[Rfam]
RNA sequence: AAUAUUGUACGUAAAAUAACCCGUAUAAUCCCGGUAAUAUGGUCUGGGAGUCUCUACAGAGUGGCCUUAAAUCACUCUACUAUGGACGGAAAAUUUCUUUUU
Numbered sequence: 001a002a003u004a005u006u007g008u009a010c011g012u013a014a015a016a017u018a019a020c021c022c023g024u025a026u027a028a029u030c031c032c033g034g035u036a037a038u039a040u041g042g043u044c045u046g047g048g049a050g051u052c053u054c055u056a057c058a059g060a061g062u063g064g065c066c067u068u069a070a071a072u073c074a075c076u077c078u079a080c081u082a083u084g085g086a087c088g089g090a091a092a093a094u095u096u097c098u099u100u101u102u
Stems, first nucleotide, its partner, number of pairs: 021085005029049006058078007
Purine riboswitch aptamer: a 102-nucleotide sequence from Niallia circulans. Its family is annotated with purine nucleobase biosynthetic process in the Gene Ontology.